[Rfam]
RNA: Small nucleolar RNA SNORD127
RNA sequence: CGGCAACAAUGAUGACAGGUAUUGAAACUGUAUGUAAUGCUCCAUUACCACAUGGAGACACCAGUCCCUCUAAACUGAUGUUGCCA
Numbered sequence: 001c002g003g004c005a006a007c008a009a010u011g012a013u014g015a016c017a018g019g020u021a022u023u024g025a026a027a028c029u030g031u032a033u034g035u036a037a038u039g040c041u042c043c044a045u046u047a048c049c050a051c052a053u054g055g056a057g058a059c060a061c062c063a064g065u066c067c068c069u070c071u072a073a074a075c076u077g078a079u080g081u082u083g084c085c086a
Base pairs, nucleotide, nucleotide: 002085003084004083005082006081007080